[Rfam]
Shown here is a 268-nucleotide RNA sequence from Paenibacillus nuruki, a member of the family "T-box leader". A search with the family's covariance model found it, with a score of 105 bits. NCBI's taxonomy places the organism under Bacteria, Bacillota, Bacilli, Paenibacillaceae, Paenibacillus. By type it is a cis-regulatory leader. Rfam's curators write: Uncharged tRNA acts as the effector for transcription antitermination of genes in the T-box leader family. T-boxes are found upstream of many aminoacyl-tRNA synthetase genes and some amino acid biosynthetic genes usually in Gram-positive bacteria.
RNA sequence: ACAAAGACGAAGAAAGACACCCAGUAGAAGUGGAGAUUACCGUUCUCAGAGAACCGAUGGUUGGUGCAAAUCGGCAAGCGGACUUCCUUUGAAUUACAGGUCUGGAGUCGUUUGAUAUUAGUAGUUCUAUUGAUAAUAUCAAGCCGGAAUGAAGAUUCCGUUAUAUACAAUGAAGUGAGAAGCUGAAUAUAUCUUAUGAUUUUAUCAAUAUAGGUAUAGGAUCAGUCUUCUAAUUAGGGUGGUAACGCGAGGCCUGCUCGUCCCUUUA
Numbered sequence: 001a002c003a004a005a006g007a008c009g010a011a012g013a014a015a016g017a018c019a020c021c022c023a024g025u026a027g028a029a030g031u032g033g034a035g036a037u038u039a040c041c042g043u044u045c046u047c048a049g050a051g052a053a054c055c056g057a058u059g060g061u062u063g064g065u066g067c068a069a070a071u072c073g074g075c076a077a078g079c080g081g082a083c084u085u086c087c088u089u090u091g092a093a094u095u096a097c098a099g100g101u102c103u104g105g106a107g108u109c110g111u112u113u114g115a116u117a118u119u120a121g122u123a124g125u126u127c128u129a130u131u132g133a134u135a136a137u138a139u140c141a142a143g144c145c146g147g148a149a150u151g152a153a154g155a156u157u158c159c160g161u162u163a164u165a166u167a168c169a170a171u172g173a174a175g176u177g178a179g180a181a182g183c184u185g186a187a188u189a190u191a192u193c194u195u196a197u198g199a200u201u202u203u204a205u206c207a208a209u210a211u212a213g214g215u216a217u218a219g220g221a222u223c224a225g226u227c228u229u230c231u232a233a234u235u236a237g238g239g240u241g242g243u244a245a246c247g248c249g250a251g252g253c254c255u256g257c258u259c260g261u262c263c264c265u266u267u268a
Base pairs, nucleotide, nucleotide: 007108008107015103016102017101018100027090028089029088032087033086034085042079043078044077054074055073056072057071058070111143112142113141114140115139116138117137118136119135120134145160146159147158148157149156178231179230180229181228182227184225236265237264238263239262247261248260249259250258251257